[Rfam]
RNA: Alphaproteobacterial sRNA BjrC1505
RNA sequence: AACCCGUUAACCGUGUGUUAAGCUUUACGGGUGUUAACUGGAAUGGUUCGAAUUUUGUUCGAAUUCAACCAGAGUGACUUCGUUGCUUUGUUUGACGCCUCCCUGUUUAACUCCUGAGAGCCGUUUUUACGGCUCUUUUUUU
Dot-bracket structure: ..((((.....))((.....(.((....)).)..))...)).....((((.........))))........((((((.....)))))).....((((......))))........(((((((((....))))))))).....